[Rfam]
RNA sequence: UUUGAGUUAGCGAUUGCAGUAGAAAUCCUUUUGAGCGGUUUUUACUCAAAAGAUUGGAACGAAAAGCGCGGUGGCGA
Number, nucleotide and partner (000 for none) at each position: 001u000002u000003u000004g000005a000006g000007u000008u000009a000010g069011c068012g067013a000014u065015u064016g000017c000018a000019g060020u059021a000022g000023a000024a055025a054026u053027c052028c000029u000030u050031u049032u048033g047034a046035g045036c000037g043038g000039u000040u000041u000042u000043u037044a000045c035046u034047c033048a032049a031050a030051a000052g027053a026054u025055u024056g000057g000058a000059a020060c019061g000062a000063a000064a015065a014066g000067c012068g011069c010070g000071g000072u000073g000074g000075c000076g000077a000
RNA: Flavo-1 RNA